[Rfam]
RNA: FMN riboswitch aptamer (RFN element)
Organism: Kytococcus aerolatus
RNA sequence: CACGUGUUCCGGGGUCGGUGAGAUUCCGAACCGGCGGUGACAGUCCGCGACCCGUCCGCAGCCAGCGAACGGUUGACUGGGUGGAACUCCCAGACCGACGGUGAAAGUCCGGAUGGGAGGACCACGUG
Numbered sequence: 001c002a003c004g005u006g007u008u009c010c011g012g013g014g015u016c017g018g019u020g021a022g023a024u025u026c027c028g029a030a031c032c033g034g035c036g037g038u039g040a041c042a043g044u045c046c047g048c049g050a051c052c053c054g055u056c057c058g059c060a061g062c063c064a065g066c067g068a069a070c071g072g073u074u075g076a077c078u079g080g081g082u083g084g085a086a087c088u089c090c091c092a093g094a095c096c097g098a099c100g101g102u103g104a105a106a107g108u109c110c111g112g113a114u115g116g117g118a119g120g121a122c123c124a125c126g127u128g
Stems, first nucleotide, its partner, number of pairs: 003126004008121003016028003030108002032097002034048004043095002052072002077093005099111003